[Rfam]
RNA sequence: CGCAACGGCCUGGGGUGCCGCGCAUCAUGCGCGGCUGAGAUCAUACCCAUCGAACCUGUCUGGGUCAUUCCAGCGUAGGGAGGAGCCGAUGAGCCAAGGC
Numbered sequence: 001c002g003c004a005a006c007g008g009c010c011u012g013g014g015g016u017g018c019c020g021c022g023c024a025u026c027a028u029g030c031g032c033g034g035c036u037g038a039g040a041u042c043a044u045a046c047c048c049a050u051c052g053a054a055c056c057u058g059u060c061u062g063g064g065u066c067a068u069u070c071c072a073g074c075g076u077a078g079g080g081a082g083g084a085g086c087c088g089a090u091g092a093g094c095c096a097a098g099g100c
Base pairs, nucleotide, nucleotide: 006088007087008086009085011049012048013047014046016043017035018034019033020032021031022030023029055079056078057077058076060073061072062071063070
The family of this 100-nucleotide RNA from Aquabacter sp. L1I39 is "TPP riboswitch aptamer (THI element)". It scores 62 bits against the family's covariance model. Rfam links the family to the GO term thiamine pyrophosphate binding. Vitamin B(1) in its active form thiamin pyrophosphate (TPP) is an essential coenzyme that is synthesised by coupling of pyrimidine and thiazole moieties in bacteria.